[Rfam]
RNA: Ribosomal protein L20 leader
RNA sequence: UUGUAUAAGCAGAAGCACCCCGCUUCUCACCUGUUUGACGCUUCACUUGCUGUUGACAGGUUUUUUACGAUUGAAUUGCGUAUAAUCAGGAUCGUAAUAAGUGUGGGUGUCGUAUGCACUCACACUUUUUUUAUUCC
Dot-bracket structure: ..........((((((.....)))))).(((.....(((((.......)).)))....)))......................................((((((((((.......))))))))))...........